[Rfam]
Nucleotides: 083
Stems, first nucleotide, its partner, number of pairs: 001083007
Number, partner (000 for none) and nucleotide at each position: 001083g002082c003081u004080g005079g006078u007077u008000c009000a010000g011000u012000g013000a014000u015000g016000a017000g018000u019000u020000c021000a022000c023000u024000c025000u026000u027000u028000g029000c030000c031000g032000u033000u034000u035000a036000c037000c038000c039000a040000u041000c042000a043000g044000a045000a046000a047000a048000u049000u050000a051000c052000a053000u054000g055000a056000u057000g058000a059000a060000g061000a062000c063000g064000u065000g066000a067000u068000a069000a070000a071000c072000u073000g074000a075000a076000u077007a078006g079005c080004c081003a082002g083001c